[Rfam]
RNA: mir-1791 microRNA precursor family
Organism: Phoenicopterus ruber
Nucleotides: 080
Stems, first nucleotide, its partner, number of pairs: 002080004006074008015065014032048004
Number, partner (000 for none) and nucleotide at each position: 001000u002080g003079c004078g005077c006074c007073g008072u009071g010070u011069u012068g013067g014000g015065c016064u017063g018062c019061a020060u021059c022058a023057g024056u025055c026054g027053u028052g029000c030000c031000a032048u033047g034046u035045u036000a037000c038000g039000g040000a041000a042000c043000c044000c045035a046034a047033c048032g049000c050000a051000a052028u053027g054026u055025g056024a057023c058022u059021g060020a061019u062018g063017c064016a065015g066000g067013c068012u069011g070010a071009c072008a073007c074006g075000a076000c077005g078004u079003g080002u